[Rfam]
RNA sequence: CAUGUUACAAUAGUAAAGUUGUUUAUCAACCCUUGGUGCUUACUCCCCUUUCACCAAGCAUAUUACACGUGGUUUAGCCACUAAAGGAGAAAAAAAUG
Number, nucleotide and partner (000 for none) at each position: 001c000002a000003u000004g000005u000006u000007a000008c000009a000010a000011u000012a000013g000014u000015a000016a000017a000018g030019u029020u028021g027022u000023u000024u000025a000026u000027c021028a020029a019030c018031c000032c058033u057034u056035g055036g054037u053038g052039c000040u000041u000042a000043c000044u000045c089046c000047c087048c086049u085050u084051u000052c038053a037054c036055c035056a034057a033058g032059c000060a000061u000062a000063u000064u000065a000066c000067a000068c000069g081070u080071g079072g078073u000074u000075u000076a000077g000078c072079c071080a070081c069082u000083a000084a050085a049086g048087g047088a000089g045090a000091a000092a000093a000094a000095a000096a000097u000098g000
Shown here is a 98-nucleotide sequence from Streptococcus zalophi, a member of the family "PreQ1-II (pre queuosine) riboswitch aptamer". The literature on the family includes a 2008 paper in RNA by Meyer et al., "Confirmation of a second natural preQ1 aptamer class in Streptococcaceae bacteria". preQ1-II riboswitch was first reported for Weinberg et al. 2007 it was recognised in Streptococcaceae and Lactococcus families in 5' untranslated regions of genes of a membrane protein classified as COG4708 or DUF988. Meyers et al. 2008 confirm that preQ1-II recognise the queuosine (Q) precursor pre-queuosine 1 (preQ1). Gene Ontology term of the family: queuosine biosynthetic process. Lineage of the source: Bacteria > Bacillati > Bacillota > Streptococcaceae > Streptococcus.